A member of the RNA family "Small nucleolar RNA SNORA8", 139 nucleotides long. ACA8 is a member of the H/ACA class of snoRNA that guide the sites of modification of uridines to pseudouridines.
RNA sequence: UGCACUGCAUGGCAUCUGCACCCAGCAGUUUACUCUUGCUAAGGUGUUCAAAGGUCAGUGCUAUAGAAAUUCAGUAUCUGGCAUCAUUGGUUUUCUUGACUUUGUGCUUGUUAAACCUAGUAUUUCUAUUGAUACAGUA
Numbered sequence: 001u002g003c004a005c006u007g008c009a010u011g012g013c014a015u016c017u018g019c020a021c022c023c024a025g026c027a028g029u030u031u032a033c034u035c036u037u038g039c040u041a042a043g044g045u046g047u048u049c050a051a052a053g054g055u056c057a058g059u060g061c062u063a064u065a066g067a068a069a070u071u072c073a074g075u076a077u078c079u080g081g082c083a084u085c086a087u088u089g090g091u092u093u094u095c096u097u098g099a100c101u102u103u104g105u106g107c108u109u110g111u112u113a114a115a116c117c118u119a120g121u122a123u124u125u126c127u128a129u130u131g132a133u134a135c136a137g138u139a
Stems, first nucleotide, its partner, number of pairs: 002061006014055004018047005024040005064128007071120001073118002080108005
Its family is annotated with nucleolus and RNA processing in the Gene Ontology. Rfam 15.1 lists 1,490 matches to the family in 610 species. By type it is an H/ACA-box small nucleolar RNA.